The record is a 91-nucleotide RNA sequence from Canis lupus, which matches "mir-8799 microRNA precursor family" in Rfam. The family's consensus secondary structure was predicted with RNAalifold. Lineage of the source: Eukaryota > Tetrapoda > Canidae > Canis > Canis lupus. It scores 72 bits against the family's covariance model. The family has 7 seed sequences and 20,638 matches in Rfam 15.1.
RNA sequence: GGGGGGAGGCCGGAUCCUGGGCUGUGUCCGUGGCGCCGUGGGCUCCUGGGCCUGCGCUGUUGGAGUCGCGCUCCCGGUGGAGCAGCCGCCU
Dot-bracket structure: (((.((..(((.(..((.(((.(((((((.((((((...(.(((....)))).))))))..)))..)))).))).))).).))..)).)))